[Rfam]
RNA sequence: GAUGAUCAGACGGCCUUAUCCUCCUCCCGAGGUUGUCUGUAGGAAUGGCGGCACUCCUCCUCCCAGCCGCUGUUCGGUUCUUCCGGAAAAAGCCUGCCGCACCUCCUCCCGCGGCGGGCUUUUUCU
Numbered sequence: 001g002a003u004g005a006u007c008a009g010a011c012g013g014c015c016u017u018a019u020c021c022u023c024c025u026c027c028c029g030a031g032g033u034u035g036u037c038u039g040u041a042g043g044a045a046u047g048g049c050g051g052c053a054c055u056c057c058u059c060c061u062c063c064c065a066g067c068c069g070c071u072g073u074u075c076g077g078u079u080c081u082u083c084c085g086g087a088a089a090a091a092g093c094c095u096g097c098c099g100c101a102c103c104u105c106c107u108c109c110c111g112c113g114g115c116g117g118g119c120u121u122u123u124u125c126u
Base pairs, nucleotide, nucleotide: 007039008038009037010036011035012034013033014032015031016030043075044074045073046072047071048070049069050068051067052066090121091120092119093118094117095116096115097114098113099112100111
RNA: Alphaproteobacterial ar14